[Rfam]
RNA sequence: GAGCAUCAGCACCUUGGCUUUAGACUGCUUACUGCUUACAGAGUGCCACAGUACAGUAACAGUCUACAGUCAUGGCUACUGAAGCCUG
Numbered sequence: 001g002a003g004c005a006u007c008a009g010c011a012c013c014u015u016g017g018c019u020u021u022a023g024a025c026u027g028c029u030u031a032c033u034g035c036u037u038a039c040a041g042a043g044u045g046c047c048a049c050a051g052u053a054c055a056g057u058a059a060c061a062g063u064c065u066a067c068a069g070u071c072a073u074g075g076c077u078a079c080u081g082a083a084g085c086c087u088g
Base pairs, nucleotide, nucleotide: 012075013074015072016071017070018069023064024063025062026061027060029059030058031057032056033055